[Rfam]
RNA: DUF1874 RNA
RNA sequence: UUAAACCCUACCCGAUUGCUAUGGCCAUCCAAGGUAAGAGUGUCCCGAAGGGGCACCGCCAUAGCGUCCCGAAAGGGAUAGGGUAGGGUAGGAGGA
Numbered sequence: 001u002u003a004a005a006c007c008c009u010a011c012c013c014g015a016u017u018g019c020u021a022u023g024g025c026c027a028u029c030c031a032a033g034g035u036a037a038g039a040g041u042g043u044c045c046c047g048a049a050g051g052g053g054c055a056c057c058g059c060c061a062u063a064g065c066g067u068c069c070c071g072a073a074a075g076g077g078a079u080a081g082g083g084u085a086g087g088g089u090a091g092g093a094g095g096a
Base pairs, nucleotide, nucleotide: 005089006088007087008086009085010084011083012082013081018065019064020063021062022061023060024059025058038057040056041055043053044052045051066079067078068077069076070075